[Rfam]
The family of this 91-nucleotide RNA from Oceanibaculum indicum is "Bacterial small signal recognition particle RNA". Rfam classes the family as a non-coding RNA gene. The literature on the family includes a 2003 paper in Nucleic Acids Res by Rosenblad et al., "SRPDB: Signal Recognition Particle Database". It scores 56 bits against the family's covariance model. Lineage of the source: Bacteria > Alphaproteobacteria > Rhodospirillales > Oceanibaculum > Oceanibaculum indicum.

RNA sequence: AGGCUGGCGCGGACGGAGUCCUCGCCAACCCGGUCAGGUCCGGAAGGAAGCAGCCGUAACGAGUUUCGCUUCGGGUCGUUGCCAGUCUCCU
Numbered sequence: 001a002g003g004c005u006g007g008c009g010c011g012g013a014c015g016g017a018g019u020c021c022u023c024g025c026c027a028a029c030c031c032g033g034u035c036a037g038g039u040c041c042g043g044a045a046g047g048a049a050g051c052a053g054c055c056g057u058a059a060c061g062a063g064u065u066u067c068g069c070u071u072c073g074g075g076u077c078g079u080u081g082c083c084a085g086u087c088u089c090c091u
Stems, first nucleotide, its partner, number of pairs: 001088009010078002014073006021063004031056004039048003